[Rfam]
A member of the RNA family "tRNA" from Nippostrongylus brasiliensis, 72 nucleotides long. The family is grouped with related families in Rfam's "tRNA clan". The family's consensus secondary structure is taken from published work. Taxonomically the source falls in Nippostrongylus (Eukaryota, Eumetazoa, Protostomia, Rhabditida). Rfam links the family to the GO term triplet codon-amino acid adaptor activity.

RNA sequence: GUCUCAGUAGCAUAGUGGUUAGUGCACAGCCCCGGAUAGGUUGAGACGCCGGUUCGAAUCCCGCCUGAGAUG
Number, nucleotide and partner (000 for none) at each position: 001g071002u070003c069004u068005c067006a066007g065008u000009a000010g025011c024012a023013u022014a000015g000016u000017g000018g000019u000020u000021a000022g013023u012024g011025c010026a000027c043028a042029g041030c040031c039032c000033c000034g000035g000036a000037u000038a000039g031040g030041u029042u028043g027044a000045g000046a000047c000048g064049c063050c000051g061052g060053u000054u000055c000056g000057a000058a000059u000060c052061c051062c000063g049064c048065c007066u006067g005068a004069g003070a002071u001072g000